[Rfam]
RNA: MIR8622 microRNA precursor family
Organism: Ectocarpus siliculosus
RNA sequence: CCGAAAUCUGCCGGAGUCAAGCGGCAUCCAACAUUCGUUACAGCCGUGCUCACCGCCACGGGUCGUAAACCCCUGAACCACGGGUCGUCAGCAGUAGCUAGUGGCAUCAGCUACUGCUGUAAACCCGCAGUUCAGGAGAUUGGGGUCCGUGGCGGCGAGCACAGCUGUGACAAAUGUUGGAUGCCGCUUGGUUCCGGCGCAGAUUUCGG
Number, nucleotide and partner (000 for none) at each position: 001c209002c208003g207004a206005a205006a204007u203008c202009u201010g200011c197012c196013g195014g194015a193016g192017u191018c190019a189020a188021g187022c186023g185024g184025c183026a182027u181028c180029c179030a178031a177032c000033a175034u174035u173036c000037g171038u170039u169040a000041c167042a166043g165044c164045c000046g162047u161048g160049c159050u158051c157052a000053c155054c154055g153056c152057c151058a150059c149060g000061g147062g146063u145064c144065g000066u142067a141068a140069a000070c138071c000072c136073c135074u134075g133076a132077a131078c130079c000080a000081c000082g126083g125084g124085u000086c000087g000088u000089c119090a118091g117092c116093a115094g114095u113096a112097g111098c110099u109100a000101g000102u000103g000104g000105c000106a000107u000108c000109a099110g098111c097112u096113a095114c094115u093116g092117c091118u090119g089120u000121a000122a000123a000124c084125c083126c082127g000128c000129a000130g078131u077132u076133c075134a074135g073136g072137a000138g070139a000140u068141u067142g066143g000144g064145g063146u062147c061148c000149g059150u058151g057152g056153c055154g054155g053156c000157g051158a050159g049160c048161a047162c046163a000164g044165c043166u042167g041168u000169g039170a038171c037172a000173a035174a034175u033176g000177u031178u030179g029180g028181a027182u026183g025184c024185c023186g022187c021188u020189u019190g018191g017192u016193u015194c014195c013196g012197g011198c000199g000200c010201a009202g008203a007204u006205u005206u004207c003208g002209g001